[Rfam]
The record is a 54-nucleotide RNA sequence from Muraenolepis orangiensis, which matches "UnaL2 LINE 3' element" in Rfam.
It scores 60 bits against the family's covariance model.
From the family's description: The eel long interspersed element (LINE) UnaL2 and its partner short interspersed element (SINE) share a conserved 3' tail containing a stem-loop that is critical for their retrotransposition.
The family's RNA type in Rfam is cis-regulatory element.
RNA sequence: GAAACACACUAUUGUAAGUUGCUUUGCAUAAAAGCGUCUGCUAAAUGACUGUAA
Dot-bracket structure: ............((((...((((((.....))))))..))).)...........
Numbered sequence: 001g002a003a004a005c006a007c008a009c010u011a012u013u014g015u016a017a018g019u020u021g022c023u024u025u026g027c028a029u030a031a032a033a034g035c036g037u038c039u040g041c042u043a044a045a046u047g048a049c050u051g052u053a054a
Stems, first nucleotide, its partner, number of pairs: 013043001014041003020036006
Lineage of the source: Eukaryota > Opisthokonta > Ctenosquamata > Muraenolepididae > Muraenolepis.